[Rfam]
RNA sequence: CUUUUAUUAAGAAUGGUGGAGGGACUGGCCCUAUGAAACCUGGCAACAGCUGACAUAAAGUCAGAAUUGUGCUAAAUCCUGCAGGAUAUAUUUCCUGAAAGAUAAAAG
Numbered sequence: 001c002u003u004u005u006a007u008u009a010a011g012a013a014u015g016g017u018g019g020a021g022g023g024a025c026u027g028g029c030c031c032u033a034u035g036a037a038a039c040c041u042g043g044c045a046a047c048a049g050c051u052g053a054c055a056u057a058a059a060g061u062c063a064g065a066a067u068u069g070u071g072c073u074a075a076a077u078c079c080u081g082c083a084g085g086a087u088a089u090a091u092u093u094c095c096u097g098a099a100a101g102a103u104a105a106a107a108g
Stems, first nucleotide, its partner, number of pairs: 001108008013041001015040003021031003025081001027079002042073004047069002050064003077100001082097005
RNA: SAM riboswitch aptamer (S box leader)
Organism: Romboutsia sp. CE17